[Rfam]
RNA: Small nucleolar RNA SNORA27
Organism: Limosa lapponica
RNA sequence: GCACCCUCCUUCACUUUACCAGUUAGACAGUUAUUGUCUUGAUUGGUCAUUCAAGGUGGGUAAAGUGUAUAUCCUUUUUAUAACCCAAGCAAAUGAUGCUCGUUUGACUUGGAUCCUGUCAGAGGAAACAGUU
Numbered sequence: 001g002c003a004c005c006c007u008c009c010u011u012c013a014c015u016u017u018a019c020c021a022g023u024u025a026g027a028c029a030g031u032u033a034u035u036g037u038c039u040u041g042a043u044u045g046g047u048c049a050u051u052c053a054a055g056g057u058g059g060g061u062a063a064a065g066u067g068u069a070u071a072u073c074c075u076u077u078u079u080a081u082a083a084c085c086c087a088a089g090c091a092a093a094u095g096a097u098g099c100u101c102g103u104u105u106g107a108c109u110u111g112g113a114u115c116c117u118g119u120c121a122g123a124g125g126a127a128a129c130a131g132u133u
Stems, first nucleotide, its partner, number of pairs: 035062005043054004072126006086111001087109001090106005
Dot-bracket structure: ..................................(((((...((((....))))...))))).........((((((........((..(((((.......)))))..).).........)))))).......